RNA sequence: UGGGCAGGCGACAAGUGCGGGUCUGGCGGAGCGCGGUGGCGCGCGGAGACCGAGAGGCGACCGCGGGCGGCAGGGCCCCCGGCGGCGCGCCACUCGGCCGGGCCGAGAGUCGCGUCAGUCGGUGUUCCCGGCCGAGCGCGGUCCGCCUCCCUCUCAGCGCCCAUCCGGCCUGAGGGCGGCCAGAGGGCAUGUGGGACCCCACAAGGGCGCCACCGCCGGUGCUCGCCGGCCGCGGGUGAAGAGGAGAGUACGGCCUCACUCAACCCAGAGCAGAGAGGUGGCCCGGAGCGAAGAGGGGUUCCGGAGCGAAGAGGGGUUCCGGAGCGAAGAGGAGGUGCUGAGCGAAGAGGAGAUGCUGAGCGAACAGGUG
Numbered sequence: 001u002g003g004g005c006a007g008g009c010g011a012c013a014a015g016u017g018c019g020g021g022u023c024u025g026g027c028g029g030a031g032c033g034c035g036g037u038g039g040c041g042c043g044c045g046g047a048g049a050c051c052g053a054g055a056g057g058c059g060a061c062c063g064c065g066g067g068c069g070g071c072a073g074g075g076c077c078c079c080c081g082g083c084g085g086c087g088c089g090c091c092a093c094u095c096g097g098c099c100g101g102g103c104c105g106a107g108a109g110u111c112g113c114g115u116c117a118g119u120c121g122g123u124g125u126u127c128c129c130g131g132c133c134g135a136g137c138g139c140g141g142u143c144c145g146c147c148u149c150c151c152u153c154u155c156a157g158c159g160c161c162c163a164u165c166c167g168g169c170c171u172g173a174g175g176g177c178g179g180c181c182a183g184a185g186g187g188c189a190u191g192u193g194g195g196a197c198c199c200c201a202c203a204a205g206g207g208c209g210c211c212a213c214c215g216c217c218g219g220u221g222c223u224c225g226c227c228g229g230c231c232g233c234g235g236g237u238g239a240a241g242a243g244g245a246g247a248g249u250a251c252g253g254c255c256u257c258a259c260u261c262a263a264c265c266c267a268g269a270g271c272a273g274a275g276a277g278g279u280g281g282c283c284c285g286g287a288g289c290g291a292a293g294a295g296g297g298g299u300u301c302c303g304g305a306g307c308g309a310a311g312a313g314g315g316g317u318u319c320c321g322g323a324g325c326g327a328a329g330a331g332g333a334g335g336u337g338c339u340g341a342g343c344g345a346a347g348a349g350g351a352g353a354u355g356c357u358g359a360g361c362g363a364a365c366a367g368g369u370g
Stems, first nucleotide, its partner, number of pairs: 020104008038093001041090002044052003061082003065078004144352001146350004167188001169186003205224007259270003

The record is a 370-nucleotide RNA from Myotis lucifugus, which matches "Bag-1 internal ribosome entry site (IRES)" in Rfam. The sequence is in the family's curated seed alignment. The literature on the family includes a 2001 paper in Oncogene by Coldwell et al., "The p36 isoform of BAG-1 is translated by internal ribosome entry following heat shock". Lineage of the source: Eukaryota > Tetrapoda > Mammalia > Yangochiroptera > Myotis.